[Rfam]
RNA sequence: GCAUGGGUUUGGAUUUAUGGCAGGCCUGUCACCAUGGACCUCUCAUAGUGUCCCAUGCUAGAGUAAACUGUAGCCCCGAACCAGUGCUUAGUAGCCUCCCUGCCCAUAGGCUGCGGGCACUGAAGUGGGUUGCACAAUG
Numbered sequence: 001g002c003a004u005g006g007g008u009u010u011g012g013a014u015u016u017a018u019g020g021c022a023g024g025c026c027u028g029u030c031a032c033c034a035u036g037g038a039c040c041u042c043u044c045a046u047a048g049u050g051u052c053c054c055a056u057g058c059u060a061g062a063g064u065a066a067a068c069u070g071u072a073g074c075c076c077c078g079a080a081c082c083a084g085u086g087c088u089u090a091g092u093a094g095c096c097u098c099c100c101u102g103c104c105c106a107u108a109g110g111c112u113g114c115g116g117g118c119a120c121u122g123a124a125g126u127g128g129g130u131u132g133c134a135c136a137a138u139g
Stems, first nucleotide, its partner, number of pairs: 001058004005053004015048006022041003025037002071132006082122002087117002092113006

Source information: The family of this 139-nucleotide RNA sequence from Chrysochloris asiatica is "Small nucleolar RNA SNORA42/SNORA80 family". The source organism's lineage runs through Eukaryota, Craniata, Vertebrata, Teleostomi and Chrysochloris. Rfam classes the family as an H/ACA-box small nucleolar RNA. A reference for the family is Schattner et al. (2006), "A computational screen for mammalian pseudouridylation guide H/ACA RNAs", RNA. The base pairs follow the family's consensus structure, which was predicted with RNAalifold.